This 115-nucleotide RNA sequence from Trifolium pratense belongs to the Rfam family "MIR2593 microRNA precursor family".
NCBI's taxonomy places the organism under Eukaryota, Viridiplantae, Streptophytina, Spermatophyta, Trifolium.
It scores 99 bits against the family's covariance model.

[Rfam]
RNA sequence: UUAUAAGCAAAAUUUUACUUUUUAGGCUUAUUGAAUAACUGAUGUAUUUGGUCUAUAUUAUCGACCAAAUACAUCAGUUAUUCAAUGAACCUAAAAAACAAAUUUUUGCUUAUAA
Dot-bracket structure: .((((((.((((..((..(((((((..(((((((((((((((((....((((...........))))....)))))))))))))))))..)))))))..))..)))).)))))).